Shown here is a 100-nucleotide RNA from Orenia metallireducens, a member of the family "Glycine riboswitch aptamer". This family represents the bacterial glycine riboswitch. Glycine riboswitches usually consist of two metabolite-binding aptamers domains with similar structures in tandem. The aptamers cooperatively bind glycine to regulate the expression of downstream genes. In Bacillus subtilis, this riboswitch is found upstream of the gcvT operon which controls glycine degradation. A search with the family's covariance model found it, with a score of 51 bits.
[Rfam]
RNA sequence: AUGAAUGUUACAGGAGAAAAGCUUAAGCUUUGCCGACGGGGCAAGUCUAUAGUUGUCCGACUAUAGAUGAAACUCUCAGGUAAAAUACUGUAACUGGACG
Numbered sequence: 001a002u003g004a005a006u007g008u009u010a011c012a013g014g015a016g017a018a019a020a021g022c023u024u025a026a027g028c029u030u031u032g033c034c035g036a037c038g039g040g041g042c043a044a045g046u047c048u049a050u051a052g053u054u055g056u057c058c059g060a061c062u063a064u065a066g067a068u069g070a071a072a073c074u075c076u077c078a079g080g081u082a083a084a085a086u087a088c089u090g091u092a093a094c095u096g097g098a099c100g
Base pairs, nucleotide, nucleotide: 007094008093009092010091011090012089013088019030020029021028022027032081033080034079035077036076039075040074041073045068046067047066048065049064050063051062052061053060054059